A member of the RNA family "Small nucleolar RNA SNORA20" from Tinamus guttatus, 135 nucleotides long. Gene Ontology terms of the family: RNA processing and nucleolus. The family has 17 seed sequences and 437 matches in Rfam 15.1. NCBI's taxonomy places the organism under Eukaryota, Deuterostomia, Dipnotetrapodomorpha, Archelosauria, Tinamus. It scores 62 bits against the family's covariance model. Rfam classes the family as an H/ACA-box small nucleolar RNA. Its Rfam clan is "SNORA20 clan". About the family: ACA20 is a member of the H/ACA class of snoRNA that guide the sites of modification of uridines to pseudouridines.

[Rfam]
RNA sequence: AAUCCCAUUUAUUUGCUUCCAUGCUUUGUCAGUGGUAUGAGGAGUUAUACGCAUGGGAAAGACUACAAUAAAGUUCCCUGCAAAUUAGAGAUGAAAAUAUCAGUGUUUCAUCUCUCUUGCUGGGGCUGGACAGCU
Numbered sequence: 001a002a003u004c005c006c007a008u009u010u011a012u013u014u015g016c017u018u019c020c021a022u023g024c025u026u027u028g029u030c031a032g033u034g035g036u037a038u039g040a041g042g043a044g045u046u047a048u049a050c051g052c053a054u055g056g057g058a059a060a061g062a063c064u065a066c067a068a069u070a071a072a073g074u075u076c077c078c079u080g081c082a083a084a085u086u087a088g089a090g091a092u093g094a095a096a097a098u099a100u101c102a103g104u105g106u107u108u109c110a111u112c113u114c115u116c117u118u119g120c121u122g123g124g125g126c127u128g129g130a131c132a133g134c135u
Base pairs, nucleotide, nucleotide: 003058004057005056006055007054008053015045016044017043018042019041022037023036025035026034069129072127073126074125075124076123077122080120081119082118088114089113090112091111092110093109094108095107096106